[Rfam]
RNA sequence: ACUUAAUAAAACGAACACCGUCGUAUAAUAUUGAGGAUAUGGCUCAAGAGUUUCUACCAGACUACCGUAAAUGGUCUGACUACGAGGGGUGAAGGGUGGAGG
Numbered sequence: 001a002c003u004u005a006a007u008a009a010a011a012c013g014a015a016c017a018c019c020g021u022c023g024u025a026u027a028a029u030a031u032u033g034a035g036g037a038u039a040u041g042g043c044u045c046a047a048g049a050g051u052u053u054c055u056a057c058c059a060g061a062c063u064a065c066c067g068u069a070a071a072u073g074g075u076c077u078g079a080c081u082a083c084g085a086g087g088g089g090u091g092a093a094g095g096g097u098g099g100a101g102g
Stems, first nucleotide, its partner, number of pairs: 018088002021085005029049001031047005058078007
RNA: Purine riboswitch aptamer
Organism: Pontibacillus halophilus